[Rfam]
RNA sequence: AUUGAUGUUUCAUCGAUAGGAUACGUGCAUUCCUGGUAACGGAAUUGUGCGAAGGUAUCCGGACAAAAUAGCCCGUAAAGGGAUUCUGAGAAGAAUGCCUGUUACGCACCAACCUAAGGUGCGGGGGAGU
Numbered sequence: 001a002u003u004g005a006u007g008u009u010u011c012a013u014c015g016a017u018a019g020g021a022u023a024c025g026u027g028c029a030u031u032c033c034u035g036g037u038a039a040c041g042g043a044a045u046u047g048u049g050c051g052a053a054g055g056u057a058u059c060c061g062g063a064c065a066a067a068a069u070a071g072c073c074c075g076u077a078a079a080g081g082g083a084u085u086c087u088g089a090g091a092a093g094a095a096u097g098c099c100u101g102u103u104a105c106g107c108a109c110c111a112a113c114c115u116a117a118g119g120u121g122c123g124g125g126g127g128a129g130u
Stems, first nucleotide, its partner, number of pairs: 002016006019060005024051006031044001033042003079100003086093002105123006
Notes:
A member of the RNA family "Group II catalytic intron D1-D4-7" from Cyclobacterium lianum, 130 nucleotides long. About the family: Group II introns are found in rRNA, tRNA and mRNA of organelles in fungi, plants and protists, and also in mRNA in bacteria. Rfam 15.1 lists 1,296 matches to the family in 705 species. The match comes from Rfam's covariance-model search (59 bits). Gene Ontology term of the family: Group II intron splicing. A reference for the family is Bonen and Vogel (2001), "The ins and outs of group II introns", Trends Genet. NCBI's taxonomy places the organism under Bacteria, Bacteroidota, Cytophagia, Cyclobacteriaceae, Cyclobacterium.